[Rfam]
RNA: L31-Actinobacteria ribosomal protein leader
Organism: Gordonia amarae
RNA sequence: CCGGUACCGGUUCACACCGUCGAACAUCGGCGGUGACCCGGCGACC
Dot-bracket structure: ..(((.((((....(((((((((...)))))))))..))))..)))
Numbered sequence: 001c002c003g004g005u006a007c008c009g010g011u012u013c014a015c016a017c018c019g020u021c022g023a024a025c026a027u028c029g030g031c032g033g034u035g036a037c038c039c040g041g042c043g044a045c046c
Stems, first nucleotide, its partner, number of pairs: 003046003007041004015035009